The family of this 46-nucleotide RNA is "ssNA-helicase RNA". Rfam classes the family as a small RNA.
[Rfam]
RNA sequence: GCGUAAAAGGUAGUAUUACCUUUUACGUUACAAGUAGCUUGUAGCA
Numbered sequence: 001g002c003g004u005a006a007a008a009g010g011u012a013g014u015a016u017u018a019c020c021u022u023u024u025a026c027g028u029u030a031c032a033a034g035u036a037g038c039u040u041g042u043a044g045c046a
Stems, first nucleotide, its partner, number of pairs: 001028010